The record is a 104-nucleotide sequence from Prunus armeniaca, which matches "MIR6274 microRNA precursor family" in Rfam. The organism belongs to Prunus, within Eukaryota. A search with the family's covariance model found it, with a score of 82 bits. Gene Ontology terms of the family: miRNA-mediated post-transcriptional gene silencing and RISC complex.
[Rfam]
RNA sequence: GAAUAACAUUUUCUAUUAUCCCGGCCAAUAACACAAUGACUCGUAGGAUAACUUUUCCACGUGUCAUUGUGUUAUUGGCCGGGAAUAGCAAAACAGUGGUAUUC
Numbered sequence: 001g002a003a004u005a006a007c008a009u010u011u012u013c014u015a016u017u018a019u020c021c022c023g024g025c026c027a028a029u030a031a032c033a034c035a036a037u038g039a040c041u042c043g044u045a046g047g048a049u050a051a052c053u054u055u056u057c058c059a060c061g062u063g064u065c066a067u068u069g070u071g072u073u074a075u076u077g078g079c080c081g082g083g084a085a086u087a088g089c090a091a092a093a094c095a096g097u098g099g100u101a102u103u104c
Base pairs, nucleotide, nucleotide: 002103003102004101005100011093012092014090016088017087018086019085020083021082022081023080024079025078026077027076028075029074030073031072032071033070034069035068036067037066038065039064040063042061043060044059046057047056048055